[Rfam]
Nucleotides: 404
Stems, first nucleotide, its partner, number of pairs: 005161008015147003020050001022048005051106004059099003066093005071086006108142003115135005171296006301402005307321001310318001327394006333387003337380002345373003349370001352367004
Number, partner (000 for none) and nucleotide at each position: 001000a002000c003000u004000c005161g006160u007159u008158g009157u010156u011155g012154c013000g014000a015147u016146a017145g018000u019000a020050a021000u022048c023047c024046u025045g026044c027000u028000u029000a030000g031000u032000a033000c034000g035000a036000g037000a038000g039000g040000a041000a042000c043000c044026g045025c046024a047023g048022g049000u050020u051106c052105a053104g054103a055000c056000a057000u058000u059099u060098g061097g062000u063000u064000c065000a066093u067092g068091u069090g070089c071086u072085u073084g074083g075082c076081c077000g078000a079000u080000c081076g082075g083074c084073c085072a086071a087000u088000g089070g090069u091068g092067c093066g094000a095000a096000g097061c098060u099059a100000c101000c102000a103054u104053c105052u106051g107000a108142g109141g110140g111000a112000u113000u114000a115135u116134g117133a118132c119131u120000g121000a122000a123000c124000g125000c126000c127000u128000c129000u130000a131119a132118g133117u134116c135115a136000g137000a138000a139000u140110c141109c142108c143000g144000c145017c146016u147015a148000g149000u150000g151000a152000a153000g154012g155011c156010a157009a158008c159007g160006a161005u162000a163000a164000a165000u166000u167000u168000g169000c170000u171296c172295c173294c174293c175292g176291g177000u178000g179000u180000c181000g182000g183000g184000a185000g186000g187000c188000a189000c190000u191000u192000c193000u194000a195000u196000g197000u198000g199000a200000c201000u202000a203000u204000u205000g206000a207000a208000g209000u210000u211000a212000c213000a214000g215000c216000u217000a218000a219000u220000g221000c222000c223000c224000c225000a226000u227000u228000a229000u230000a231000u232000g233000g234000c235000c236000u237000u238000a239000c240000g241000a242000g243000c244000g245000a246000u247000u248000g249000a250000a251000a252000g253000g254000u255000c256000g257000u258000g259000c260000g261000g262000u263000u264000g265000c266000c267000a268000a269000a270000g271000c272000c273000g274000g275000a276000c277000u278000a279000c280000a281000c282000g283000g284000u285000a286000c287000a288000a289000u290000g291176u292175c293174g294173g295172g296171g297000c298000g299000c300000a301402a302401a303400a304399u305398c306000a307321c308000u309000u310318g311000c312000a313000g314000a315000c316000g317000a318310c319000u320000u321307g322000a323000u324000u325000a326000c327394u328393g329392g330391u331390c332389a333387a334386g335385g336000u337380g338379u339000u340000g341000u342000a343000u344000c345373c346372a347371g348000u349370a350000g351000a352367g353366c354365a355364g356000c357000c358000u359000c360000c361000a362000u363000a364355c365354u366353g367352c368000g369000a370349u371347c372346u373345g374000u375000u376000g377000a378000g379338a380337c381000u382000c383000a384000u385335c386334c387333u388000u389332u390331g391330a392329u393328u394327g395000g396000a397000u398305g399304a400303u401302u402301u403000g404000u

The record is a 404-nucleotide part of an RNA from Parascaris univalens, which matches "Eukaryotic large subunit ribosomal RNA" in Rfam.
Pairs were carried over by alignment from the consensus structure, which is taken from published work.
Its family is annotated with structural constituent of ribosome and ribosome in the Gene Ontology.